[Rfam]
RNA sequence: CCGCUGGUCCGGGCCCCUCUGGCGAAAUCUACGGCGUUUUCGCGAUGUCGGACCAAUCCC
Numbered sequence: 001c002c003g004c005u006g007g008u009c010c011g012g013g014c015c016c017c018u019c020u021g022g023c024g025a026a027a028u029c030u031a032c033g034g035c036g037u038u039u040u041c042g043c044g045a046u047g048u049c050g051g052a053c054c055a056a057u058c059c060c
Stems, first nucleotide, its partner, number of pairs: 006054007022043006029036001
terC RNA: a 60-nucleotide RNA from Pararhizobium antarcticum.
Pairs were carried over by alignment from the consensus structure, which is taken from published work.
NCBI's taxonomy places the organism under Bacteria, Pseudomonadati, Alphaproteobacteria, Hyphomicrobiales, Pararhizobium.
By type it is a cis-regulatory element.
It scores 60 bits against the family's covariance model.